Shown here is a 115-nucleotide sequence from Protea cynaroides, a member of the family "Small nucleolar RNA snoR100". Pairs were carried over by alignment from the consensus structure, which was predicted with WAR. The source organism's lineage runs through Eukaryota, Viridiplantae, Tracheophyta, Magnoliopsida and Protea. Rfam links the family to the GO terms nucleolus and RNA processing. The family's RNA type in Rfam is H/ACA-box small nucleolar RNA. Rfam 15.1 lists 1,851 matches to the family in 220 species.

RNA sequence: UAAUGAAGGAAGCAUGGUAUUGUGCACAGAUAUGGAACUAGCAAGGUCCUCAUGUCUGCUUGCUUUGAUGCCCUUGUGGUUAUGGUAUUGUAGGCCUGGAAUCAGACCUACAUUG
Numbered sequence: 001u002a003a004u005g006a007a008g009g010a011a012g013c014a015u016g017g018u019a020u021u022g023u024g025c026a027c028a029g030a031u032a033u034g035g036a037a038c039u040a041g042c043a044a045g046g047u048c049c050u051c052a053u054g055u056c057u058g059c060u061u062g063c064u065u066u067g068a069u070g071c072c073c074u075u076g077u078g079g080u081u082a083u084g085g086u087a088u089u090g091u092a093g094g095c096c097u098g099g100a101a102u103c104a105g106a107c108c109u110a111c112a113u114u115g
Stems, first nucleotide, its partner, number of pairs: 012025004044097005054086003058080003